The record is a 79-nucleotide RNA from Nematostella vectensis, which matches "Small nucleolar RNA SNORD34" in Rfam. For this family Rfam cites "The high diversity of snoRNAs in plants: identification and comparative study of 120 snoRNA genes from Oryza sativa" (Chen et al., Nucleic Acids Res, 2003). snoRNA U34 is found in intron 5 of the ribosomal protein L13a gene in humans. The family's RNA type in Rfam is C/D-box small nucleolar RNA. The family has 14 seed sequences and 1,319 matches in Rfam 15.1. Its family is annotated with RNA processing and nucleolus in the Gene Ontology.
[Rfam]
RNA sequence: UGUUUCCAUGAUGAAUGAUCAUUACCUACAUUGUUUGAGGGUUACACAAUGAUAAAAAAAUGAUGGUUCUGAGAAACUA
Numbered sequence: 001u002g003u004u005u006c007c008a009u010g011a012u013g014a015a016u017g018a019u020c021a022u023u024a025c026c027u028a029c030a031u032u033g034u035u036u037g038a039g040g041g042u043u044a045c046a047c048a049a050u051g052a053u054a055a056a057a058a059a060a061u062g063a064u065g066g067u068u069c070u071g072a073g074a075a076a077c078u079a
Base pairs, nucleotide, nucleotide: 001079002078003076004075005074006073